azaaromatic riboswitch aptamer (yjdF RNA): a 102-nucleotide RNA from Desulfoscipio gibsoniae. Lineage of the source: Bacteria > Bacillati > Clostridia > Desulfoscipio > Desulfoscipio gibsoniae. It scores 72 bits against the family's covariance model. The family's consensus secondary structure is taken from published work.

[Rfam]
RNA sequence: AAUAUGGAACAUAAAACGCGAUCCGGUUGGUAGUCCGGGUGCACAGCAACACGGUGUCAGUAACCCUCCCCCUUUGGGAUGUCCACUGUUCCCGUAGUUCUA
Numbered sequence: 001a002a003u004a005u006g007g008a009a010c011a012u013a014a015a016a017c018g019c020g021a022u023c024c025g026g027u028u029g030g031u032a033g034u035c036c037g038g039g040u041g042c043a044c045a046g047c048a049a050c051a052c053g054g055u056g057u058c059a060g061u062a063a064c065c066c067u068c069c070c071c072c073u074u075u076g077g078g079a080u081g082u083c084c085a086c087u088g089u090u091c092c093c094g095u096a097g098u099u100c101u102a
Base pairs, nucleotide, nucleotide: 006092007091008090009089010088011087021040022039023038024037025036026035041057042056043055044054046052067079068078069077070076